[Rfam]
RNA sequence: AAUAUGAUGGUGGGGGCAACUGGCACAUAGUUUCUUAAAUCUCUCCCAGUACUCAUACAGACUCUCUCCACUGAGUUGUCUAAUACCUGAGAUAUCCUUCCUGAUGGC
Numbered sequence: 001a002a003u004a005u006g007a008u009g010g011u012g013g014g015g016g017c018a019a020c021u022g023g024c025a026c027a028u029a030g031u032u033u034c035u036u037a038a039a040u041c042u043c044u045c046c047c048a049g050u051a052c053u054c055a056u057a058c059a060g061a062c063u064c065u066c067u068c069c070a071c072u073g074a075g076u077u078g079u080c081u082a083a084u085a086c087c088u089g090a091g092a093u094a095u096c097c098u099u100c101c102u103g104a105u106g107g108c
Base pairs, nucleotide, nucleotide: 003106004105005103007102058075061072
About this RNA: The record is a 108-nucleotide sequence from Glycine max, which matches "Plant small nucleolar RNA R71" in Rfam. It scores 40 bits against the family's covariance model. Its family is annotated with RNA processing and nucleolus in the Gene Ontology. For this family Rfam cites "Plant snoRNAs: functional evolution and new modes of gene expression" (Brown et al., Trends Plant Sci, 2003). The organism belongs to Glycine subgen. Soja, within Eukaryota.